[Rfam]
MIR1886 microRNA precursor family: a 52-nucleotide sequence from Solanum lycopersicum.
Gene Ontology terms of the family: miRNA-mediated post-transcriptional gene silencing and RISC complex.
The family's consensus secondary structure was predicted with RNAalifold.
A search with the family's covariance model found it, with a score of 65 bits.

RNA sequence: UGAGAUGGAAUCAUCGUUUGGACAGCUAAUUUUACGUUGAUUCCAUCUCAUG
Numbered sequence: 001u002g003a004g005a006u007g008g009a010a011u012c013a014u015c016g017u018u019u020g021g022a023c024a025g026c027u028a029a030u031u032u033u034a035c036g037u038u039g040a041u042u043c044c045a046u047c048u049c050a051u052g
Stems, first nucleotide, its partner, number of pairs: 001050013015036003018029003